[Rfam]
RNA: Small nucleolar RNA snoR136
Organism: Panicum hallii
RNA sequence: GUUGGUGCUGCUUCUCUUGGUUCAUGCUCAUGAGCUUGUUUUUGGUUCUUGAGCUUUGGAAGGUGAAGCAAAAGUCUUAAUGGUUCCUCUCGCUAUCCGGGGCAGAAUUUCUUUUGAUGCUACUGGACGUCGAGGAACUAUAUCA
Numbered sequence: 001g002u003u004g005g006u007g008c009u010g011c012u013u014c015u016c017u018u019g020g021u022u023c024a025u026g027c028u029c030a031u032g033a034g035c036u037u038g039u040u041u042u043u044g045g046u047u048c049u050u051g052a053g054c055u056u057u058g059g060a061a062g063g064u065g066a067a068g069c070a071a072a073a074g075u076c077u078u079a080a081u082g083g084u085u086c087c088u089c090u091c092g093c094u095a096u097c098c099g100g101g102g103c104a105g106a107a108u109u110u111c112u113u114u115u116g117a118u119g120c121u122a123c124u125g126g127a128c129g130u131c132g133a134g135g136a137a138c139u140a141u142a143u144c145a
Stems, first nucleotide, its partner, number of pairs: 002072001003070002008065001011063003016059002019056002026054005032048005083138007091129002096127005107115001